[Rfam]
Background:
Rfam assigns this 62-nucleotide sequence from Limnohabitans sp. 2KL-17 to the family "Betaproteobacteria toxic small RNA".
RNA sequence: UGUCUCCUCCACCCUCUGAAAAGGUGGAUUUGCCCCAAGCCGCAAGGCUCGGGGCAUUUUUU
Numbered sequence: 001u002g003u004c005u006c007c008u009c010c011a012c013c014c015u016c017u018g019a020a021a022a023g024g025u026g027g028a029u030u031u032g033c034c035c036c037a038a039g040c041c042g043c044a045a046g047g048c049u050c051g052g053g054g055c056a057u058u059u060u061u062u
Base pairs, nucleotide, nucleotide: 008028009027010026011025012024013023032055033054034053035052036051038049039048
Lineage of the source: Bacteria > Pseudomonadati > Pseudomonadota > Burkholderiales > Limnohabitans. About the family: Overexpression in amino aid rich medium attenuates growth, suggesting role in repressing amino acid intake and metabolism.